[Rfam]
RNA: t44 RNA
RNA sequence: CCAUAGGUAACUUAAAAACACACGCAUUUGCUGCCCUGUGUCCGGUGCCGAAGAGUUCGGUGACACGGGGGAUGAUGCGGAGGACAAAC
Numbered sequence: 001c002c003a004u005a006g007g008u009a010a011c012u013u014a015a016a017a018a019c020a021c022a023c024g025c026a027u028u029u030g031c032u033g034c035c036c037u038g039u040g041u042c043c044g045g046u047g048c049c050g051a052a053g054a055g056u057u058c059g060g061u062g063a064c065a066c067g068g069g070g071g072a073u074g075a076u077g078c079g080g081a082g083g084a085c086a087a088a089c
Base pairs, nucleotide, nucleotide: 023079024078025077026076027075028074029072034070035069036068037067038066039065040064041063042062047061048060049059050058051057